[Rfam]
RNA sequence: AUAAUCCGUUAACACUCUAGCCUCUGUGCCUGUGUCGCAAGAUAUGGUGCUUUGGCCGUGACAACUUCGGUUGCCACCAGGGCGUGGAAAGAAAUGACCGCGUCUCCCGUAUUUGGAAAGGUGUAUAUGGCUUCACAGC
Numbered sequence: 001a002u003a004a005u006c007c008g009u010u011a012a013c014a015c016u017c018u019a020g021c022c023u024c025u026g027u028g029c030c031u032g033u034g035u036c037g038c039a040a041g042a043u044a045u046g047g048u049g050c051u052u053u054g055g056c057c058g059u060g061a062c063a064a065c066u067u068c069g070g071u072u073g074c075c076a077c078c079a080g081g082g083c084g085u086g087g088a089a090a091g092a093a094a095u096g097a098c099c100g101c102g103u104c105u106c107c108c109g110u111a112u113u114u115g116g117a118a119a120g121g122u123g124u125a126u127a128u129g130g131c132u133u134c135a136c137a138g139c
Base pairs, nucleotide, nucleotide: 003133004132006130012124013123014122015121017120020056021055022054026050027049028048029047030046034043035042036041058077059076060075062073063072064071080105081104082103083102084101085100086099087098090095106116107115

The family of this 139-nucleotide RNA from Klebsiella indica is "Molybdenum/Tungsten riboswitch aptamer (Moco RNA motif)".
Gene Ontology terms of the family: regulation of gene expression, molybdenum ion binding and tungstate binding.
The organism belongs to Klebsiella, within Bacteria.
The match comes from Rfam's covariance-model search (94 bits).